[Rfam]
RNA sequence: AGAGGCUGCAAGUUUGAGGCCAUAACAGAAGUGCUCAUGGCACAUCCAUGUCAGAUUCCAAUGAAUCUGUGAAUUCUGCU
Dot-bracket structure: ............[....[[....(.((((((((.......)))..]]]...(((((((....)))))))....))))).)
Mammalian CPEB3 ribozyme: an 80-nucleotide sequence from Alligator mississippiensis. NCBI's taxonomy places the organism under Eukaryota, Opisthokonta, Eumetazoa, Chordata, Alligator. Pairs were carried over by alignment from the consensus structure, which is taken from published work.